Source information
This 47-nucleotide RNA sequence from Saccharothrix sp. belongs to the Rfam family "Guanidine-II riboswitch aptamer (mini-ykkC)". NCBI's taxonomy places the organism under Bacteria, Bacillati, Actinomycetes, Pseudonocardiales, Saccharothrix. It scores 35 bits against the family's covariance model. From the family's description: Simpler in structure and has fewer highly conserved nucleotide positions than the ykkC-yxkD leader. Despite this each of its two stem-loop structures directly bind free guanidine. Therefore, mini-ykkC RNA motif represents a distinct class of guanidine-sensing RNAs. Its crystal structure was also determined.
[Rfam]
RNA sequence: GCGCGUGGACGACCUCGUGGUCGACUACGACGACGGGGACGACCCCG
Numbered sequence: 001g002c003g004c005g006u007g008g009a010c011g012a013c014c015u016c017g018u019g020g021u022c023g024a025c026u027a028c029g030a031c032g033a034c035g036g037g038g039a040c041g042a043c044c045c046c047g
Stems, first nucleotide, its partner, number of pairs: 002019004007014002034047005